[Rfam]
RNA: Purine riboswitch aptamer
RNA sequence: CGAAAAUGAAAAACGAACCCUCAUAUAUUUUGGGAAUAUGGCCCAACUGUUUCUACCUGGCGACCGGAAAUUGCCGGACUAUGAAGGAAAAUGGUAACGUU
Numbered sequence: 001c002g003a004a005a006a007u008g009a010a011a012a013a014c015g016a017a018c019c020c021u022c023a024u025a026u027a028u029u030u031u032g033g034g035a036a037u038a039u040g041g042c043c044c045a046a047c048u049g050u051u052u053c054u055a056c057c058u059g060g061c062g063a064c065c066g067g068a069a070a071u072u073g074c075c076g077g078a079c080u081a082u083g084a085a086g087g088a089a090a091a092u093g094g095u096a097a098c099g100u101u
Stems, first nucleotide, its partner, number of pairs: 018087002021084005030046005057077007